Shown here is a 76-nucleotide sequence from Aotus nancymaae, a member of the family "mir-320 microRNA precursor family". The family has 38 seed sequences and 659 matches in Rfam 15.1. The match comes from Rfam's covariance-model search (77 bits). Gene Ontology terms of the family: positive regulation of stem cell proliferation, long-term synaptic potentiation and miRNA-mediated post-transcriptional gene silencing.

RNA sequence: GCAACGAGGGGCCUUCUCUUCCUGGUCCUUCCUGGAGUCAGGAAAAUUUGGGUUGAGAGGGCAAAAAAAAAAAAAA
Dot-bracket structure: .............(((((..(((((...((((((....))))))...)))))..))))).................